[Rfam]
RNA sequence: GAGGUCGAGAGGCGCUGCAACGGACCGGGUGGUCCGCCACGCUCGACCUGGGUCUUUCCAGCUGCAAGGGCGCCUCCCACAA
Numbered sequence: 001g002a003g004g005u006c007g008a009g010a011g012g013c014g015c016u017g018c019a020a021c022g023g024a025c026c027g028g029g030u031g032g033u034c035c036g037c038c039a040c041g042c043u044c045g046a047c048c049u050g051g052g053u054c055u056u057u058c059c060a061g062c063u064g065c066a067a068g069g070g071c072g073c074c075u076c077c078c079a080c081a082a
Stems, first nucleotide, its partner, number of pairs: 002049007021036006
Dot-bracket structure: .(((((((............((((((....))))))......))))))).................................
RNA: SAH (S-adenosyl-L-homocysteine) riboswitch aptamer